Source information
Shown here is a 150-nucleotide sequence from Salmonella enterica, a member of the family "sok antitoxin (CssrC)". The family's consensus secondary structure is taken from published work. Rfam links the family to the GO term mRNA binding. The organism belongs to Salmonella enterica subsp. enterica serovar Javiana, within Bacteria. Also identified in Shigella as CssrC. A reference for the family is Loh et al. (1988), "Nucleotide sequence and transcriptional analysis of a third function (Flm) involved in F-plasmid maintenance", Gene.
[Rfam]
RNA sequence: GGGUGCUUGAGACUGUUUGUCUCAGGUAUUCACCAAAAGGCAGAGAGAGAAAAGCCCCACCUGACUAUAAAUCAAAAGUGCACUGCGACCAUUAUUGAUCUCUUCAAUAACGAAGUGAUCUCCUGCAGUAUUUCAGAAUGUCCAACCAUG
Number, nucleotide and partner (000 for none) at each position: 001g058002g057003g056004u000005g055006c054007u053008u052009g000010a000011g000012a000013c047014u046015g000016u044017u043018u042019g041020u040021c039022u038023c000024a000025g000026g034027u000028a000029u000030u000031c000032a000033c000034c026035a000036a000037a000038a022039g021040g020041c019042a018043g017044a016045g000046a014047g013048a000049g000050a000051a000052a008053a007054g006055c005056c003057c002058c001059a079060c078061c000062u075063g073064a072065c000066u070067a000068u000069a000070a066071a000072u064073c063074a000075a062076a000077a000078g060079u059080g000081c117082a116083c115084u114085g000086c000087g000088a000089c000090c112091a000092u110093u109094a108095u107096u106097g105098a104099u000100c000101u000102c000103u000104u098105c097106a096107a095108u094109a093110a092111c000112g090113a000114a084115g083116u082117g081118a000119u000120c000121u000122c000123c140124u000125g000126c000127a000128g000129u000130a000131u000132u000133u000134c000135a000136g000137a000138a000139u000140g123141u000142c000143c000144a000145a000146c000147c000148a000149u000150g000